RNA sequence: ACGCCCCUCGGGUGCUCGGGUCCGCCGCAUCUCCUGGGAAACCGAAGGGCUCGGCCGGUCGGCCGCGGAUUUCUGGCCUCCUCAGAGCCGCGCCGGCCGGCCACCUU
Numbered sequence: 001a002c003g004c005c006c007c008u009c010g011g012g013u014g015c016u017c018g019g020g021u022c023c024g025c026c027g028c029a030u031c032u033c034c035u036g037g038g039a040a041a042c043c044g045a046a047g048g049g050c051u052c053g054g055c056c057g058g059u060c061g062g063c064c065g066c067g068g069a070u071u072u073c074u075g076g077c078c079u080c081c082u083c084a085g086a087g088c089c090g091c092g093c094c095g096g097c098c099g100g101c102c103a104c105c106u107u
Stems, first nucleotide, its partner, number of pairs: 003050004008045003015038006053102011
Rfam assigns this 107-nucleotide RNA sequence from Allobosea sp. TND4EK4 to the family "EcpR1". A reference for the family is Wilms et al. (2012), "Deep sequencing uncovers numerous small RNAs on all four replicons of the plant pathogen Agrobacterium tumefaciens", RNA Biol. The base pairs follow the family's consensus structure, which was predicted with WAR. Rfam describes the family as follows. Perviously named SmelC291, SmrC10, or Sra33. According to its overproduction phenotype it was renamed Elongated Cell Phenotype RNA1. Gene Ontology terms of the family: mRNA binding, negative regulation of cell cycle and regulation of translation in response to stress.